[Rfam]
RNA sequence: GCCCUCCCGCGUGACUGGCGAGAGAGAUGGAGCACCAUCGGGGAGCGCGGGGCCAUGCCGUUUGCCGCUCGCCUGGGCAAUCCAC
Numbered sequence: 001g002c003c004c005u006c007c008c009g010c011g012u013g014a015c016u017g018g019c020g021a022g023a024g025a026g027a028u029g030g031a032g033c034a035c036c037a038u039c040g041g042g043g044a045g046c047g048c049g050g051g052g053c054c055a056u057g058c059c060g061u062u063u064g065c066c067g068c069u070c071g072c073c074u075g076g077g078c079a080a081u082c083c084a085c
Base pairs, nucleotide, nucleotide: 005052006051007050008049009048010047011046012045015042016041017073018072019071020070021069027038028037029036030035062080063079064078065077066076
Shown here is an 85-nucleotide sequence from Teichococcus cervicalis, a member of the family "ZMP/ZTP riboswitch aptamer (pfl RNA motif)". Pairs were carried over by alignment from the consensus structure, which is taken from published work. It scores 69 bits against the family's covariance model.